[Rfam]
Rfam assigns this 214-nucleotide RNA from Aquamicrobium lusatiense to the family "permuted transfer-messenger RNA". It is annotated as a non-coding RNA gene. Gene Ontology term of the family: RNA catabolic process. The source organism's lineage runs through Bacteria, Pseudomonadati, Alphaproteobacteria, Hyphomicrobiales and Aquamicrobium. The match comes from Rfam's covariance-model search (142 bits).
RNA sequence: GGUGAUAAAUGGGCGAUGUAAUAAGCCGUUCGGACCCGGGGGCGGUACCCGGCGCCUCCACCAAAAACUGUCGUGACGGACAGCUUUUGCUGGGGGCGAAACAGGAUCGACGAAGGUGUAAAGAUCGUACUUUUGCCCGGCAUUGUACCACCGUCAUCGGGCUAACUCAGUAGUUGCAAACGACAACUAUGCGGAAGCACGUCUCGCUGCGUAA
Number, nucleotide and partner (000 for none) at each position: 001g137002g136003u135004g134005a133006u000007a000008a000009a000010u000011g000012g000013g000014c127015g126016a125017u124018g000019u000020a000021a000022u000023a000024a000025g000026c116027c115028g000029u000030u113031c112032g111033g000034a000035c000036c052037c051038g050039g049040g048041g000042g000043c000044g000045g000046u000047a000048c040049c039050c038051g037052g036053c098054g097055c096056c095057u094058c093059c092060a000061c000062c000063a000064a000065a000066a000067a000068c000069u000070g000071u000072c000073g000074u000075g000076a000077c000078g000079g000080a000081c000082a000083g000084c000085u000086u000087u000088u000089g000090c000091u000092g059093g058094g057095g056096g055097c054098g053099a000100a000101a000102c000103a000104g000105g000106a000107u000108c000109g000110a000111c032112g031113a030114a000115g027116g026117u000118g000119u000120a000121a000122a000123g000124a017125u016126c015127g014128u000129a000130c000131u000132u000133u005134u004135g003136c002137c001138c153139g152140g151141c000142a000143u000144u000145g000146u000147a000148c000149c000150a000151c140152c139153g138154u000155c000156a000157u000158c000159g000160g000161g000162c000163u000164a000165a000166c000167u000168c000169a000170g000171u000172a000173g000174u000175u000176g000177c000178a000179a000180a000181c000182g000183a000184c000185a000186a000187c000188u000189a000190u000191g000192c000193g000194g000195a000196a000197g000198c000199a000200c000201g000202u000203c000204u000205c000206g000207c000208u000209g000210c000211g000212u000213a000214a000